[Rfam]
A member of the RNA family "Glycine riboswitch aptamer" from Simplicispira hankyongi, 106 nucleotides long.
RNA sequence: CAAACGCCGUCUGGAGAGCCGUCACAGCCGUGACGCACCGAAGGAGCAAGGCCGCGCUCGCAGAGCAGGGCUGAAUCUCUCAGGUACCGAGGACAGAGGGAGCGGC
Number, nucleotide and partner (000 for none) at each position: 001c000002a000003a000004a000005c000006g000007c100008c099009g000010u097011c096012u095013g094014g000015a000016g000017a000018g000019c000020c035021g034022u033023c032024a000025c000026a000027g000028c000029c000030g000031u000032g023033a022034c021035g020036c000037a085038c084039c083040g081041a080042a000043g000044g079045a078046g077047c000048a000049a000050g072051g071052c070053c069054g000055c000056g000057c000058u000059c000060g000061c000062a000063g000064a000065g000066c000067a000068g000069g053070g052071c051072u050073g000074a000075a000076u000077c046078u045079c044080u041081c040082a000083g039084g038085u037086a000087c000088c000089g000090a000091g000092g000093a000094c013095a012096g011097a010098g000099g008100g007101a000102g000103c000104g000105g000106c000
Annotation:
Gene Ontology term of the family: glycine biosynthetic process. Taxonomically the source falls in Simplicispira (Bacteria, Pseudomonadota, Betaproteobacteria, Comamonadaceae).